Description: The family of this 59-nucleotide RNA from Paenarthrobacter sp. YJN-5 is "msiK RNA".

RNA sequence: AACAAGAACCAUUCACUACGGAUCGUCCGGCACGUACCUGCCGGUGAAGGGAUUGAUAA
Number, nucleotide and partner (000 for none) at each position: 001a000002a000003c000004a000005a000006g000007a000008a000009c051010c050011a000012u048013u047014c046015a045016c000017u000018a000019c000020g000021g000022a000023u000024c000025g000026u000027c044028c043029g042030g041031c040032a039033c000034g000035u000036a000037c000038c000039u032040g031041c030042c029043g028044g027045u015046g014047a013048a012049g000050g010051g009052a000053u000054u000055g000056a000057u000058a000059a000
Lineage of the source: Bacteria > Bacillati > Actinomycetes > Micrococcales > Paenarthrobacter. The family's consensus secondary structure is taken from published work.